This 160-nucleotide RNA from Paenibacillus endophyticus belongs to the Rfam family "c-di-AMP riboswitch aptamer (ydaO/yuaA leader)". The source organism's lineage runs through Bacteria, Bacillati, Caryophanales, Paenibacillaceae and Paenibacillus. Its family is annotated with regulation of gene expression and cyclic-di-AMP binding in the Gene Ontology.

RNA sequence: AAUCCUUAAUCGCUGAAUUCUGACAAAGAAUCGGGGGAACCAAAGAGCGGGAUCCAAGUGGUCCGUGCUCAGGGGUGAAUCGGUUGGAGUUUUUCAACCGUAGGGCGACUUUUGCGCCCGAAUCCGUCAGCUAACCUCGUAAGCGUCCAAGAGAGGAACU
Numbered sequence: 001a002a003u004c005c006u007u008a009a010u011c012g013c014u015g016a017a018u019u020c021u022g023a024c025a026a027a028g029a030a031u032c033g034g035g036g037g038a039a040c041c042a043a044a045g046a047g048c049g050g051g052a053u054c055c056a057a058g059u060g061g062u063c064c065g066u067g068c069u070c071a072g073g074g075g076u077g078a079a080u081c082g083g084u085u086g087g088a089g090u091u092u093u094u095c096a097a098c099c100g101u102a103g104g105g106c107g108a109c110u111u112u113u114g115c116g117c118c119c120g121a122a123u124c125c126g127u128c129a130g131c132u133a134a135c136c137u138c139g140u141a142a143g144c145g146u147c148c149a150a151g152a153g154a155g156g157a158a159c160u
Stems, first nucleotide, its partner, number of pairs: 011145004018030003032139005041072001073125003081100007103119004